[Rfam]
RNA sequence: GGCCCAUUAACCAGGCAUUAACGGUUAAUAGUGUCUAAUGCUCAUGUCCGGAGCUUCUGGACGAUUGCAGACUGACUGCUGGUCACUCUGUUUGACGCCUCCCUGUUAAACUCUCGAGAGCCGCUUUUGCGGCUCUUUUUUU
Numbered sequence: 001g002g003c004c005c006a007u008u009a010a011c012c013a014g015g016c017a018u019u020a021a022c023g024g025u026u027a028a029u030a031g032u033g034u035c036u037a038a039u040g041c042u043c044a045u046g047u048c049c050g051g052a053g054c055u056u057c058u059g060g061a062c063g064a065u066u067g068c069a070g071a072c073u074g075a076c077u078g079c080u081g082g083u084c085a086c087u088c089u090g091u092u093u094g095a096c097g098c099c100u101c102c103c104u105g106u107u108a109a110a111c112u113c114u115c116g117a118g119a120g121c122c123g124c125u126u127u128u129g130c131g132g133c134u135c136u137u138u139u140u141u142u
Stems, first nucleotide, its partner, number of pairs: 001042003014036002021032002024029001046062004070088002073085003094107004116137009

About this RNA: This 142-nucleotide sequence from Georhizobium profundi belongs to the Rfam family "Alphaproteobacterial sRNA BjrC1505". A reference for the family is Madhugiri et al. (2012), "Small RNAs of the Bradyrhizobium/Rhodopseudomonas lineage and their analysis", RNA Biol. The family's RNA type in Rfam is small RNA. The pairing is the family consensus, mapped onto this sequence.